[Rfam]
A member of the RNA family "Bacterial RNase P class A" from Arcanobacterium sp. S3PF19, 364 nucleotides long.

RNA sequence: CGGGUCCGCCAGGCGGCCGCGGCACCGGAACUCUAAACCGGGGGAAAGCCGAGGAACGUCCGGGCUCCGCAGGGAGCGGCGGUGGGUAACGCCCACUCAGGGAAACCUGCAGGAAAGUGCCACAGAAAACAAACCGCCUGCGGAUGCGAAAGCAGACGCGGUAAGGGUGAAAAGGUGAGGUAAGAGCUCACCGCGUCACCGGUGACGGUGACGGCACGGUAAACCCCGCCGGGAGCAAGGCCAAGCAGUGCGCGUUGAGGUGUCCCGCCGAGCGCACGGGUAGGCUGCUAGAGUUUGGCGGUAACGUCAAACGCAGAUGGAUGGUCGCCCAAGACAGAACCCGGCGUAUCGGCGGGCCCGUUCU
Numbered sequence: 001c002g003g004g005u006c007c008g009c010c011a012g013g014c015g016g017c018c019g020c021g022g023c024a025c026c027g028g029a030a031c032u033c034u035a036a037a038c039c040g041g042g043g044g045a046a047a048g049c050c051g052a053g054g055a056a057c058g059u060c061c062g063g064g065c066u067c068c069g070c071a072g073g074g075a076g077c078g079g080c081g082g083u084g085g086g087u088a089a090c091g092c093c094c095a096c097u098c099a100g101g102g103a104a105a106c107c108u109g110c111a112g113g114a115a116a117g118u119g120c121c122a123c124a125g126a127a128a129a130c131a132a133a134c135c136g137c138c139u140g141c142g143g144a145u146g147c148g149a150a151a152g153c154a155g156a157c158g159c160g161g162u163a164a165g166g167g168u169g170a171a172a173a174g175g176u177g178a179g180g181u182a183a184g185a186g187c188u189c190a191c192c193g194c195g196u197c198a199c200c201g202g203u204g205a206c207g208g209u210g211a212c213g214g215c216a217c218g219g220u221a222a223a224c225c226c227c228g229c230c231g232g233g234a235g236c237a238a239g240g241c242c243a244a245g246c247a248g249u250g251c252g253c254g255u256u257g258a259g260g261u262g263u264c265c266c267g268c269c270g271a272g273c274g275c276a277c278g279g280g281u282a283g284g285c286u287g288c289u290a291g292a293g294u295u296u297g298g299c300g301g302u303a304a305c306g307u308c309a310a311a312c313g314c315a316g317a318u319g320g321a322u323g324g325u326c327g328c329c330c331a332a333g334a335c336a337g338a339a340c341c342c343g344g345c346g347u348a349u350c351g352g353c354g355g356g357c358c359c360g361u362u363c364u
Stems, first nucleotide, its partner, number of pairs: 001360010011349001012329007020051004056347003060344005065235004072266004077231005082096005097111001098109004112226002117224002119220003134166002136162003140159003145154003174192006193215001194213008239286004248277006259269003293312008
By type it is a ribozyme. Rfam links the family to the GO terms dimeric ribonuclease P complex, tRNA processing and ribonuclease P activity.